[Rfam]
RNA: ROOL RNA
RNA sequence: CUUGAAAAAUAAACACUAUGAUAACUCAGUGCAGAUUGAAUGCGAUGUUCAAGCUGAGAAUACUCGGAUAGGGCUCGGGAGUACACGAAUCAAGGAUACUUGAGGAAACUCGUCCGCUUUGUUUAAAGCGAUUUAAGCAAAGAAUCCCAGUGGGGAGAAAGUAAAGAGUAUGUGCUUCAAUUAUCGUACAUAAAGGAUGCCGUGGAAAGGUGCGUGCAAUAGACAGCUUAGUGAAUAGCUAAGCCGAAUCCAAGUUAGGUGUUAGUUGGUGACUGUCACAGACCUUGGAAAUACCAACAAACGCAUGGGCGGUGAUGGAGUUGAAAAAUUCCUAUAACUUUCUACAGCGACAGAGUAGCGGAACGCCAAGACUUGAAGAAUCAAAUUUAGAUUGAUAUUCUAAAAAUAAAUUAAUUUUCUGAAUAUCCCGUGAAAUGUGUUUGGUAAUCAGUCCAACAGUGACUAUGCGGUUUCGGCCGGAGGCAAGAAGUUUUAAGACGACGGUUUUAAGGCUCAGACUUGUUUCUCACUUGUCUGAAUAUAUGUAAAGAUAAAAUGAGGUAAGGCGAAGGCCUAUCAUAAUAGUGUUUAUUUU
Numbered sequence: 001c002u003u004g005a006a007a008a009a010u011a012a013a014c015a016c017u018a019u020g021a022u023a024a025c026u027c028a029g030u031g032c033a034g035a036u037u038g039a040a041u042g043c044g045a046u047g048u049u050c051a052a053g054c055u056g057a058g059a060a061u062a063c064u065c066g067g068a069u070a071g072g073g074c075u076c077g078g079g080a081g082u083a084c085a086c087g088a089a090u091c092a093a094g095g096a097u098a099c100u101u102g103a104g105g106a107a108a109c110u111c112g113u114c115c116g117c118u119u120u121g122u123u124u125a126a127a128g129c130g131a132u133u134u135a136a137g138c139a140a141a142g143a144a145u146c147c148c149a150g151u152g153g154g155g156a157g158a159a160a161g162u163a164a165a166g167a168g169u170a171u172g173u174g175c176u177u178c179a180a181u182u183a184u185c186g187u188a189c190a191u192a193a194a195g196g197a198u199g200c201c202g203u204g205g206a207a208a209g210g211u212g213c214g215u216g217c218a219a220u221a222g223a224c225a226g227c228u229u230a231g232u233g234a235a236u237a238g239c240u241a242a243g244c245c246g247a248a249u250c251c252a253a254g255u256u257a258g259g260u261g262u263u264a265g266u267u268g269g270u271g272a273c274u275g276u277c278a279c280a281g282a283c284c285u286u287g288g289a290a291a292u293a294c295c296a297a298c299a300a301a302c303g304c305a306u307g308g309g310c311g312g313u314g315a316u317g318g319a320g321u322u323g324a325a326a327a328a329u330u331c332c333u334a335u336a337a338c339u340u341u342c343u344a345c346a347g348c349g350a351c352a353g354a355g356u357a358g359c360g361g362a363a364c365g366c367c368a369a370g371a372c373u374u375g376a377a378g379a380a381u382c383a384a385a386u387u388u389a390g391a392u393u394g395a396u397a398u399u400c401u402a403a404a405a406a407u408a409a410a411u412u413a414a415u416u417u418u419c420u421g422a423a424u425a426u427c428c429c430g431u432g433a434a435a436u437g438u439g440u441u442u443g444g445u446a447a448u449c450a451g452u453c454c455a456a457c458a459g460u461g462a463c464u465a466u467g468c469g470g471u472u473u474c475g476g477c478c479g480g481a482g483g484c485a486a487g488a489a490g491u492u493u494u495a496a497g498a499c500g501a502c503g504g505u506u507u508u509a510a511g512g513c514u515c516a517g518a519c520u521u522g523u524u525u526c527u528c529a530c531u532u533g534u535c536u537g538a539a540u541a542u543a544u545g546u547a548a549a550g551a552u553a554a555a556a557u558g559a560g561g562u563a564a565g566g567c568g569a570a571g572g573c574c575u576a577u578c579a580u581a582a583u584a585g586u587g588u589u590u591a592u593u594u595u
Stems, first nucleotide, its partner, number of pairs: 007592001009590001011588001013586002017582001025058005036052005060171006076116003079111003086105001090103005117142011145155004177576001181555002195542001196536001199348002202345008210306006229241004249289006259279003263275003267296004308367004317332005352436001358431004363426001418518004439534001442456001444454001459530003469477001480527001482525002486521002490514001492511003496507004564575004